[Rfam]
RNA sequence: CGGGUACACUCCUGGAUUUACCAAUCCGAAGGGCCGAGACCCUUCGGGGUUCUGGUGUCUGAUUCGGAGACCGAAUCGGGAGCACCAUCUGCGUAGGCCGAACGUUUAAGGCUUUCGCCACCUACGGUCUUGGACGGCCCCCGCCAGGCAGGGACCCCAAUACAGCGCGACAGCCGAAGCUGUCGC
Numbered sequence: 001c002g003g004g005u006a007c008a009c010u011c012c013u014g015g016a017u018u019u020a021c022c023a024a025u026c027c028g029a030a031g032g033g034c035c036g037a038g039a040c041c042c043u044u045c046g047g048g049g050u051u052c053u054g055g056u057g058u059c060u061g062a063u064u065c066g067g068a069g070a071c072c073g074a075a076u077c078g079g080g081a082g083c084a085c086c087a088u089c090u091g092c093g094u095a096g097g098c099c100g101a102a103c104g105u106u107u108a109a110g111g112c113u114u115u116c117g118c119c120a121c122c123u124a125c126g127g128u129c130u131u132g133g134a135c136g137g138c139c140c141c142c143g144c145c146a147g148g149c150a151g152g153g154a155c156c157c158c159a160a161u162a163c164a165g166c167g168c169g170a171c172a173g174c175c176g177a178a179g180c181u182g183u184c185g186c
Base pairs, nucleotide, nucleotide: 002157003156004155005154007152011148012147013146014145022049027046028045029044030043031042032041033040053087054086055085056084057083058082059079060078061077062076063075064074065073091144092143093142096139097138098137099136104135105134106133107132108131109130110129111128112127113126168185169184170183171182172181173180